[Rfam]
A member of the RNA family "permuted transfer-messenger RNA" from Sphingobium vermicomposti, 214 nucleotides long.
The match comes from Rfam's covariance-model search (144 bits).
Rfam classes the family as a non-coding RNA gene.

RNA sequence: GGUGAUAAAUCGUGUCGUGCAAUAGGCGCAGCGGACCCGGGGGCAGUACCCGGCGGCUCCACCAUUUAUCCCGGAUAUGCGGGGUGAUUGACGGGGCCGAACUAGGAUCGACGUGUGUUGAAAGGCGAUGUCUUCACCCGGCCUGAGUAAGCCGUAAAAAUGUUCAAAACACGUAAGUGCCAACGAUAACGAGGCUCUUGCUCUUGCUGCGUAA
Numbered sequence: 001g002g003u004g005a006u007a008a009a010u011c012g013u014g015u016c017g018u019g020c021a022a023u024a025g026g027c028g029c030a031g032c033g034g035a036c037c038c039g040g041g042g043g044c045a046g047u048a049c050c051c052g053g054c055g056g057c058u059c060c061a062c063c064a065u066u067u068a069u070c071c072c073g074g075a076u077a078u079g080c081g082g083g084g085u086g087a088u089u090g091a092c093g094g095g096g097c098c099g100a101a102c103u104a105g106g107a108u109c110g111a112c113g114u115g116u117g118u119u120g121a122a123a124g125g126c127g128a129u130g131u132c133u134u135c136a137c138c139c140g141g142c143c144u145g146a147g148u149a150a151g152c153c154g155u156a157a158a159a160a161u162g163u164u165c166a167a168a169a170c171a172c173g174u175a176a177g178u179g180c181c182a183a184c185g186a187u188a189a190c191g192a193g194g195c196u197c198u199u200g201c202u203c204u205u206g207c208u209g210c211g212u213a214a
Base pairs, nucleotide, nucleotide: 001138002137003136004135005134015128016127017126018125027117028116029115031114032113033112037053038052039051040050041049054099055098056097057096058095059094060093139154140153141152142151